[Rfam]
RNA sequence: GAGCAACUUAGGAUUUUAGGCUCCCCGGUGCCACUCGAGCGGCGCUGGGCAAAACCCACAGGAGCUGGCGGUUCCUGUGCGGUCAAAAUCAAACCGCUGGAG
Numbered sequence: 001g002a003g004c005a006a007c008u009u010a011g012g013a014u015u016u017u018a019g020g021c022u023c024c025c026c027g028g029u030g031c032c033a034c035u036c037g038a039g040c041g042g043c044g045c046u047g048g049g050c051a052a053a054a055c056c057c058a059c060a061g062g063a064g065c066u067g068g069c070g071g072u073u074c075c076u077g078u079g080c081g082g083u084c085a086a087a088a089u090c091a092a093a094c095c096g097c098u099g100g101a102g
Base pairs, nucleotide, nucleotide: 001023002022003021004020012090013089014088015087016086024049025048026047027046028045029044030043031042032041054083055082056081057079058078059077060076061075062074063073064072
A member of the RNA family "PreQ1-III (pre queuosine) riboswitch aptamer" from Faecalibacterium prausnitzii, 102 nucleotides long. It is one of the family's seed sequences. The base pairs follow the family's consensus structure, which is taken from published work.